[Rfam]
RNA: DUF3800-X RNA
RNA sequence: UUGCGAGUAAGUCCCUUCCGAAGUAUAAAUGGGUGGCACCUUGAGGCGACCGCGACGCAGUAGGAAGGGGUUCGCAA
Numbered sequence: 001u002u003g004c005g006a007g008u009a010a011g012u013c014c015c016u017u018c019c020g021a022a023g024u025a026u027a028a029a030u031g032g033g034u035g036g037c038a039c040c041u042u043g044a045g046g047c048g049a050c051c052g053c054g055a056c057g058c059a060g061u062a063g064g065a066a067g068g069g070g071u072u073c074g075c076a077a
Stems, first nucleotide, its partner, number of pairs: 001077006012070008037048001039046002
Dot-bracket structure: ((((((.....((((((((.................(.((....)).)..............)))))))).))))))